terC RNA: a 63-nucleotide RNA from Sphingomonas sp. G-3-2-10.
RNA sequence: UUGCGGGACCGGGCCCCUCUGGCGGCUGCUUCACCUGAAGCGUCGUGAUGUCGGACCGCAUCG
Numbered sequence: 001u002u003g004c005g006g007g008a009c010c011g012g013g014c015c016c017c018u019c020u021g022g023c024g025g026c027u028g029c030u031u032c033a034c035c036u037g038a039a040g041c042g043u044c045g046u047g048a049u050g051u052c053g054g055a056c057c058g059c060a061u062c063g
Stems, first nucleotide, its partner, number of pairs: 006057002009054004022046005028041005

Description: It is annotated as a cis-regulatory element.